RNA sequence: GGAGUUGGCCAGGCAAUCGCCGCCCGACCACCUAAUGGUCUUUGCAGGACGUUGAAUGUCAUUAGGUGGUCGGGGGGAGGAAAGUCCGGGCUCCAUAGGGCAGGGUGCCAGAUAACGUCUGGGCGGCGUGAGCCGACGACCAGUGCAGCAGAGAGUAAACCGCCUAAGCGCUUCGGCGCCGGUAAGGGUGAAAGGGUGCGGUAAGAGCGCACCGCGCUUCUGGUAACAGUAAGUGGCACGGUAAACUCCACCCGGAGCAAGACCAAAUAGGGUUCCUUGGCGCGGCCCGCGUCGGAACCGGGUAGGUUGCUGGAGCCAGCAGGCGACUGCUGGCCUAGAGGAAUGAUUGCCCUCGACAGAACCCGGCUUAUCGGCCGACUCCGCCC
Numbered sequence: 001g002g003a004g005u006u007g008g009c010c011a012g013g014c015a016a017u018c019g020c021c022g023c024c025c026g027a028c029c030a031c032c033u034a035a036u037g038g039u040c041u042u043u044g045c046a047g048g049a050c051g052u053u054g055a056a057u058g059u060c061a062u063u064a065g066g067u068g069g070u071c072g073g074g075g076g077g078a079g080g081a082a083a084g085u086c087c088g089g090g091c092u093c094c095a096u097a098g099g100g101c102a103g104g105g106u107g108c109c110a111g112a113u114a115a116c117g118u119c120u121g122g123g124c125g126g127c128g129u130g131a132g133c134c135g136a137c138g139a140c141c142a143g144u145g146c147a148g149c150a151g152a153g154a155g156u157a158a159a160c161c162g163c164c165u166a167a168g169c170g171c172u173u174c175g176g177c178g179c180c181g182g183u184a185a186g187g188g189u190g191a192a193a194g195g196g197u198g199c200g201g202u203a204a205g206a207g208c209g210c211a212c213c214g215c216g217c218u219u220c221u222g223g224u225a226a227c228a229g230u231a232a233g234u235g236g237c238a239c240g241g242u243a244a245a246c247u248c249c250a251c252c253c254g255g256a257g258c259a260a261g262a263c264c265a266a267a268u269a270g271g272g273u274u275c276c277u278u279g280g281c282g283c284g285g286c287c288c289g290c291g292u293c294g295g296a297a298c299c300g301g302g303u304a305g306g307u308u309g310c311u312g313g314a315g316c317c318a319g320c321a322g323g324c325g326a327c328u329g330c331u332g333g334c335c336u337a338g339a340g341g342a343a344u345g346a347u348u349g350c351c352c353u354c355g356a357c358a359g360a361a362c363c364c365g366g367c368u369u370a371u372c373g374g375c376c377g378a379c380u381c382c383g384c385c386c
Stems, first nucleotide, its partner, number of pairs: 001382010011371001012351007020077002023074017082369003086366005091257004098288004103253005108122005123137001124135004138248002143246002145242002160187002162183003168179004195213006214237001215235005220229003261308004271299006279293005315334008
RNA: Bacterial RNase P class A